Source information:
Tryptophan operon leader: a 102-nucleotide RNA from Chimaeribacter arupi.

RNA sequence: GUUCGUUGGUGGCGCUCCUCCCUUUUGCGGGCGGUGUAAUCACGCAUACGGUCAUCAGACCUUGCAGAUACCCAGAAGCCCGCCGAGUGCGGGCUUUUUUGU
Numbered sequence: 001g002u003u004c005g006u007u008g009g010u011g012g013c014g015c016u017c018c019u020c021c022c023u024u025u026u027g028c029g030g031g032c033g034g035u036g037u038a039a040u041c042a043c044g045c046a047u048a049c050g051g052u053c054a055u056c057a058g059a060c061c062u063u064g065c066a067g068a069u070a071c072c073c074a075g076a077a078g079c080c081c082g083c084c085g086a087g088u089g090c091g092g093g094c095u096u097u098u099u100u101g102u
Stems, first nucleotide, its partner, number of pairs: 009043004014037002017034002020031003077095007
At least 6 amino acid operons are known to be regulated by attenuation. Rfam links the family to the GO terms transcriptional attenuation by ribosome and tryptophan biosynthetic process. A search with the family's covariance model found it, with a score of 70 bits. Pairs were carried over by alignment from the consensus structure, which is taken from published work. For this family Rfam cites "Attenuation in amino acid biosynthetic operons" (Kolter and Yanofsky, Annu Rev Genet, 1982).